[Rfam]
This 127-nucleotide RNA sequence from Channa argus belongs to the Rfam family "Small nucleolar RNA SNORA8".
By type it is an H/ACA-box small nucleolar RNA.
The organism belongs to Channa, within Eukaryota.
It scores 62 bits against the family's covariance model.
Clan: SNORA8 clan.
About the family: ACA8 is a member of the H/ACA class of snoRNA that guide the sites of modification of uridines to pseudouridines.

RNA sequence: AGCAGUGUAUGGUAUCUGCAGCCAGUUGGUUUCAUCAGCUGGUUUGUUCAAAAGUCAGUGCAAGACUAAGUCAACAUCUGGCAUCGUUGGUCUCUAUGCUGCCUGUGCUUGGAGUCCUGGUAUAGUU
Numbered sequence: 001a002g003c004a005g006u007g008u009a010u011g012g013u014a015u016c017u018g019c020a021g022c023c024a025g026u027u028g029g030u031u032u033c034a035u036c037a038g039c040u041g042g043u044u045u046g047u048u049c050a051a052a053a054g055u056c057a058g059u060g061c062a063a064g065a066c067u068a069a070g071u072c073a074a075c076a077u078c079u080g081g082c083a084u085c086g087u088u089g090g091u092c093u094c095u096a097u098g099c100u101g102c103c104u105g106u107g108c109u110u111g112g113a114g115u116c117c118u119g120g121u122a123u124a125g126u127u
Stems, first nucleotide, its partner, number of pairs: 002061003006057002014055002017052001018047004023042001024040005064116004071112004080100005